[Rfam]
RNA sequence: GCCACGCCUAGAUCGGCCAAUCGAAAAGCGGGAAACCCUGCCCGCCUGGCGCGGCAACCCAUUCUCAGGG
Numbered sequence: 001g002c003c004a005c006g007c008c009u010a011g012a013u014c015g016g017c018c019a020a021u022c023g024a025a026a027a028g029c030g031g032g033a034a035a036c037c038c039u040g041c042c043c044g045c046c047u048g049g050c051g052c053g054g055c056a057a058c059c060c061a062u063u064c065u066c067a068g069g070g
Base pairs, nucleotide, nucleotide: 001055002054003053005051006050007049008048011022012021013020028045029044030043031042032041036070037069038068039067040066

Shown here is a 70-nucleotide sequence from Chromobacterium violaceum, a member of the family "int-alpA RNA". The match comes from Rfam's covariance-model search (63 bits). Acidobacteria (1 example), Planctomycetes (1 example), Proteobacteria. The base pairs follow the family's consensus structure, which is taken from published work.